[Rfam]
Nucleotides: 068
Base pairs, nucleotide, nucleotide: 001068002067003066004065006064007062008061009060010059013056014055015054016053021048022047023046024045025044026043027042
Number, partner (000 for none) and nucleotide at each position: 001068c002067u003066g004065u005000g006064g007062u008061g009060c010059a011000u012000u013056g014055u015054a016053g017000u018000u019000g020000c021048a022047u023046u024045g025044c026043a027042u028000g029000u030000a031000a032000u033000a034000c035000u036000a037000a038000c039000a040000a041000a042027a043026u044025g045024c046023a047022a048021u049000a050000g051000a052000g053016c054015u055014g056013c057000u058000u059010u060009g061008c062007a063000a064006c065004a066003c067002a068001g

mir-33 microRNA precursor family: a 68-nucleotide RNA sequence from Betta splendens. On this family, see Li et al., BMC Genomics 2009: "Direct sequencing and expression analysis of a large number of miRNAs in Aedes aegypti and a multi-species survey of novel mosquito miRNAs". The family has 73 seed sequences and 1,467 matches in Rfam 15.1. Taxonomically the source falls in Betta (Eukaryota, Anabantiformes, Anabantoidei, Osphronemidae).